[Rfam]
RNA sequence: UCGCUCCUUCGUUAGGCGCGGCGCUCAUAUGGACAGAAGUCGCUGCUCCGGCCCGUCGAAAGACGCUCAGGGGCAUACCGUGCGGUUCGAGCUAAGGGCCGCAUUAAUGCGACUGCCCAUGCUGGCUACGCCAUAUGAGAGCUUAAGCUCAACCAGGGGGGAGAAG
Dot-bracket structure: ....(((((((([.(((..(((..((((((((......(((((.(((((....((((....))))....))))).....((((..(((......])))..))))....))))).(((......)))....))))))))..)))...)))..))...))))))....